Description
Rfam assigns this 135-nucleotide sequence from Solanum tuberosum to the family "small nucleolar RNA snoR137". A reference for the family is Chen and Wu (2009), "Mining small RNA sequencing data: a new approach to identify small nucleolar RNAs in Arabidopsis", Nucleic Acids Res. The organism belongs to Solanum, within Eukaryota.
[Rfam]
RNA sequence: GUUGCUUCUUAUGGUGAACUCUCUUUGUAAUAAAGUGAGGGAUGUUCAAGUUUCCGAAGCAUAAAUUAACUUGUCAGUAUUAAACAGCAUGGUGCAUUUCCGAUUGCAUCUUGUUACCUGUCUCCUGCUACAUUC
Numbered sequence: 001g002u003u004g005c006u007u008c009u010u011a012u013g014g015u016g017a018a019c020u021c022u023c024u025u026u027g028u029a030a031u032a033a034a035g036u037g038a039g040g041g042a043u044g045u046u047c048a049a050g051u052u053u054c055c056g057a058a059g060c061a062u063a064a065a066u067u068a069a070c071u072u073g074u075c076a077g078u079a080u081u082a083a084a085c086a087g088c089a090u091g092g093u094g095c096a097u098u099u100c101c102g103a104u105u106g107c108a109u110c111u112u113g114u115u116a117c118c119u120g121u122c123u124c125c126u127g128c129u130a131c132a133u134u135c
Stems, first nucleotide, its partner, number of pairs: 003061006015048005020042005073129001075127003079123001086115003091110004